L2-Alphaproteobacteria ribosomal protein leader: a 69-nucleotide RNA from Sulfitobacter sp. SK012.
[Rfam]
Nucleotides: 069
Stems, first nucleotide, its partner, number of pairs: 001018004006014003028045006
Number, partner (000 for none) and nucleotide at each position: 001018g002017g003016g004015c005000a006014c007013c008012u009000a010000c011000g012008g013007g014006g015004g016003c017002c018001u019000a020000c021000a022000a023000a024000c025000c026000a027000c028045a029044g030043c031042g032041g033040c034000c035000c036000u037000c038000g039000c040033g041032c042031c043030g044029c045028u046000c047000a048000c049000a050000a051000g052000c053000a054000a055000a056000a057000c058000g059000g060000a061000a062000g063000a064000c065000a066000g067000a068000c069000a
Pairs were carried over by alignment from the consensus structure, which is taken from published work. The match comes from Rfam's covariance-model search (58 bits). The family's RNA type in Rfam is cis-regulatory leader. The source organism's lineage runs through Bacteria, Pseudomonadota, Rhodobacterales, Roseobacteraceae and Sulfitobacter.